[Rfam]
Rfam assigns this 241-nucleotide RNA from Gossypium laxum to the family "Early nodulin 40". The organism belongs to Gossypium, within Eukaryota. The family's RNA type in Rfam is non-coding RNA gene. A reference for the family is Gultyaev and Roussis (2007), "Identification of conserved secondary structures and expansion segments in enod40 RNAs reveals new enod40 homologues in plants", Nucleic Acids Res. Rfam 15.1 lists 341 matches to the family in 193 species.
RNA sequence: AUGGUAUUAUUUUGGCAAAUGGGGUCUUCAUAAAGCACUGGGGAGGGGGGAGUUUGGGUGGGAUUCCUCCAUUCUCACCCUCAGCCCACAAUUAAAACAGUUUGGCAGUGCUUAUUACCCAAUAAGCUUUGCAUGGAAGAGGAUCCAUCUACCUAUCUGCGGAGGCUUUUUUGGGUAAUGCACCGGCAAAUCGGCAAGUCACGAAAAGGGCAAUCAACUCAUAGUAAGUAGUAUGAGUCUG
Numbered sequence: 001a002u003g004g005u006a007u008u009a010u011u012u013u014g015g016c017a018a019a020u021g022g023g024g025u026c027u028u029c030a031u032a033a034a035g036c037a038c039u040g041g042g043g044a045g046g047g048g049g050g051a052g053u054u055u056g057g058g059u060g061g062g063a064u065u066c067c068u069c070c071a072u073u074c075u076c077a078c079c080c081u082c083a084g085c086c087c088a089c090a091a092u093u094a095a096a097a098c099a100g101u102u103u104g105g106c107a108g109u110g111c112u113u114a115u116u117a118c119c120c121a122a123u124a125a126g127c128u129u130u131g132c133a134u135g136g137a138a139g140a141g142g143a144u145c146c147a148u149c150u151a152c153c154u155a156u157c158u159g160c161g162g163a164g165g166c167u168u169u170u171u172u173g174g175g176u177a178a179u180g181c182a183c184c185g186g187c188a189a190a191u192c193g194g195c196a197a198g199u200c201a202c203g204a205a206a207a208g209g210g211c212a213a214u215c216a217a218c219u220c221a222u223a224g225u226a227a228g229u230a231g232u233a234u235g236a237g238u239c240u241g
Stems, first nucleotide, its partner, number of pairs: 049086002100191005122179002217238007